[Rfam]
RNA: SmY spliceosomal RNA
Organism: Steinernema carpocapsae
Nucleotides: 081
Stems, first nucleotide, its partner, number of pairs: 022040003026036003058080007
Number, partner (000 for none) and nucleotide at each position: 001000g002000c003000u004000u005000u006000u007000a008000g009000c010000c011000a012000a013000u014000c015000a016000c017000u018000a019000u020000c021000a022040g023039a024038g025000u026036c027035u028034u029000a030000u031000a032000g033000u034028a035027a036026g037000a038024c039023u040022c041000g042000u043000a044000g045000u046000a047000c048000a049000a050000u051000u052000u053000u054000u055000g056000g057000a058080g059079g060078c061077c062076u063075c064074c065000u066000c067000u068000u069000u070000u071000u072000u073000u074064g075063g076062a077061g078060g079059c080058u081000a